[Rfam]
RNA sequence: UCUAACUAAUAUUUCGAGGAGUGGAAUGACGGAGUAACGUCCCGAAACGCUCCCCCUGAGACUGCGUUGGAAGAAACCGUGGACAAACGCGGGGACUGACACAGCACGCCGAAGUCGGCUGAACACACUCGCUGUAUCGACAGUGCCAGCAACACAUCGUUACGGCAAAAACGAACCAGAGGUGGUCGUGAGUGAUAGGCCGGGGGUCUACAAG
Number, nucleotide and partner (000 for none) at each position: 001u000002c000003u000004a000005a000006c000007u000008a000009a000010u000011a000012u000013u000014u000015c000016g000017a000018g053019g052020a051021g050022u049023g048024g000025a000026a000027u000028g000029a000030c000031g043032g042033a000034g040035u000036a000037a000038c000039g000040u034041c000042c032043c031044g000045a000046a000047a000048c023049g022050c021051u020052c019053c018054c206055c205056c204057u203058g000059a000060g000061a000062c000063u000064g109065c108066g107067u106068u101069g100070g000071a000072a097073g096074a000075a000076a000077c092078c091079g090080u089081g088082g000083a000084c000085a000086a000087a000088c081089g080090c079091g078092g077093g000094g000095a000096c073097u072098g000099a000100c069101a068102c000103a000104g000105c000106a067107c066108g065109c064110c000111g000112a000113a000114g000115u000116c202117g201118g200119c199120u198121g000122a000123a000124c000125a000126c194127a193128c192129u191130c190131g000132c000133u000134g000135u000136a000137u000138c000139g000140a000141c000142a000143g000144u167145g166146c165147c000148a000149g000150c000151a000152a000153c000154a000155c000156a000157u000158c000159g000160u000161u000162a000163c000164g000165g146166c145167a144168a000169a000170a000171a189172c188173g187174a000175a186176c185177c184178a183179g000180a000181g000182g000183u178184g177185g176186u175187c173188g172189u171190g130191a129192g128193u127194g126195a000196u000197a000198g120199g119200c118201c117202g116203g057204g056205g055206g054207u000208c000209u000210a000211c000212a000213a000214g000
Shown here is a 214-nucleotide sequence from Sinanaerobacter chloroacetimidivorans, a member of the family "Group II catalytic intron D1-D4-5". NCBI's taxonomy places the organism under Bacteria, Clostridia, Peptostreptococcales, Anaerovoracaceae, Sinanaerobacter. Rfam links the family to the GO term Group II intron splicing. Pairs were carried over by alignment from the consensus structure.